[Rfam]
This 68-nucleotide sequence from Onychostoma macrolepis belongs to the Rfam family "miR-430 microRNA precursor family". The organism belongs to Onychostoma, within Eukaryota. Gene Ontology terms of the family: miRNA-mediated post-transcriptional gene silencing and RISC complex. The base pairs follow the family's consensus structure, which was predicted with RNAalifold. The match comes from Rfam's covariance-model search (56 bits).
RNA sequence: AAGAUUACUUCAAAUGGGGGCAUUGAUGUGUCCUAUUUUCAUAAGUGCUUCUCUUUGGGGUAGUCUUG
Numbered sequence: 001a002a003g004a005u006u007a008c009u010u011c012a013a014a015u016g017g018g019g020g021c022a023u024u025g026a027u028g029u030g031u032c033c034u035a036u037u038u039u040c041a042u043a044a045g046u047g048c049u050u051c052u053c054u055u056u057g058g059g060g061u062a063g064u065c066u067u068g
Stems, first nucleotide, its partner, number of pairs: 004064008014055001016053003019049006026042003